About this RNA: Flavo-1 RNA: a 150-nucleotide RNA sequence from Neotamlana nanhaiensis. The organism belongs to Neotamlana, within Bacteria. A search with the family's covariance model found it, with a score of 49 bits. The family's RNA type in Rfam is small RNA.
RNA sequence: AAAUUGCGUUAGGGAUUGCAGUGGAAAUCCUUUUUACGUGUAUUUAAACUUGAUUAUUAAAUAUGCUUUUAAGUUUGUUUUUGGUUGAAGCAUUACAAAACUAGUUCGGACUGUUUAGUAAAAAGAUUGUAACGAAAAGCCCGACCCCUU
Numbered sequence: 001a002a003a004u005u006g007c008g009u010u011a012g013g014g015a016u017u018g019c020a021g022u023g024g025a026a027a028u029c030c031u032u033u034u035u036a037c038g039u040g041u042a043u044u045u046a047a048a049c050u051u052g053a054u055u056a057u058u059a060a061a062u063a064u065g066c067u068u069u070u071a072a073g074u075u076u077g078u079u080u081u082u083g084g085u086u087g088a089a090g091c092a093u094u095a096c097a098a099a100a101c102u103a104g105u106u107c108g109g110a111c112u113g114u115u116u117a118g119u120a121a122a123a124a125g126a127u128u129g130u131a132a133c134g135a136a137a138a139g140c141c142c143g144a145c146c147c148c149u150u
Base pairs, nucleotide, nucleotide: 012142013141014140016138017137021133022132026128027127028126029125032123033122034121035120036119037118